[Rfam]
RNA sequence: ACGGGUGCCGGGCACGAGCCGUACGGGGAACCGGGGAACCACCCCUUCCCGUCAGCGGUCAGGACGCGGAAGGACGGGGUGAAUCGGGCCGUCUCGUACGAGGCGCCCGUAGGAGACCUUCCUGCUCCGAACCCGACAGCUAACCCGGUAGGCGAGAAGGAAGGAAAG
Numbered sequence: 001a002c003g004g005g006u007g008c009c010g011g012g013c014a015c016g017a018g019c020c021g022u023a024c025g026g027g028g029a030a031c032c033g034g035g036g037a038a039c040c041a042c043c044c045c046u047u048c049c050c051g052u053c054a055g056c057g058g059u060c061a062g063g064a065c066g067c068g069g070a071a072g073g074a075c076g077g078g079g080u081g082a083a084u085c086g087g088g089c090c091g092u093c094u095c096g097u098a099c100g101a102g103g104c105g106c107c108c109g110u111a112g113g114a115g116a117c118c119u120u121c122c123u124g125c126u127c128c129g130a131a132c133c134c135g136a137c138a139g140c141u142a143a144c145c146c147g148g149u150a151g152g153c154g155a156g157a158a159g160g161a162a163g164g165a166a167a168g
Stems, first nucleotide, its partner, number of pairs: 006154004015027001030149006040076001077134003085109004112128004

c-di-AMP riboswitch aptamer (ydaO/yuaA leader): a 168-nucleotide RNA from Streptomyces cacaoi. Taxonomically the source falls in Streptomyces (Bacteria, Actinomycetota, Actinomycetes, Streptomycetaceae). Its family is annotated with cyclic-di-AMP binding and regulation of gene expression in the Gene Ontology. Rfam describes the family as follows. This family represents a conserved RNA structure found upstream of the ydaO and yuaA genes in Bacillus subtilis and related genes in other bacteria.